[Rfam]
RNA: Hairpin ribozyme 1 from viruses-like metatranscriptomes
RNA sequence: AUGCGGUCGGAGGAUCCUAGAUCCUCGGGAAGCAUGACAGGGAAACACAUCUAUAUCAGAUGGCAAAUUAACUGUC
Numbered sequence: 001a002u003g004c005g006g007u008c009g010g011a012g013g014a015u016c017c018u019a020g021a022u023c024c025u026c027g028g029g030a031a032g033c034a035u036g037a038c039a040g041g042g043a044a045a046c047a048c049a050u051c052u053a054u055a056u057c058a059g060a061u062g063g064c065a066a067a068u069u070a071a072c073u074g075u076c
Stems, first nucleotide, its partner, number of pairs: 001035004010026006036076005048062005